[Rfam]
RNA sequence: UAUUUAUGGUUUCGUCGCUUUAAAUUUUAAGUCAGAUGGGACUUUUUGUAUACUCAAAAGCUCCAUAACUUCUUAGCAGGUUUUACCCACUACAGAAAUUAUAGAGCC
Numbered sequence: 001u002a003u004u005u006a007u008g009g010u011u012u013c014g015u016c017g018c019u020u021u022a023a024a025u026u027u028u029a030a031g032u033c034a035g036a037u038g039g040g041a042c043u044u045u046u047u048g049u050a051u052a053c054u055c056a057a058a059a060g061c062u063c064c065a066u067a068a069c070u071u072c073u074u075a076g077c078a079g080g081u082u083u084u085a086c087c088c089a090c091u092a093c094a095g096a097a098a099u100u101a102u103a104g105a106g107c108c
Stems, first nucleotide, its partner, number of pairs: 002025005009018002029044005060107004065102004070097003074092003079088002
Streptococcus RNA 266: a 108-nucleotide RNA sequence from Streptococcus thermophilus. Taxonomically the source falls in Streptococcus thermophilus (Bacteria, Bacillati, Lactobacillales, Streptococcus). A search with the family's covariance model found it, with a score of 74 bits. The family's RNA type in Rfam is small RNA. For this family Rfam cites "Identification of 88 regulatory small RNAs in the TIGR4 strain of the human pathogen Streptococcus pneumoniae" (Acebo et al., RNA, 2012).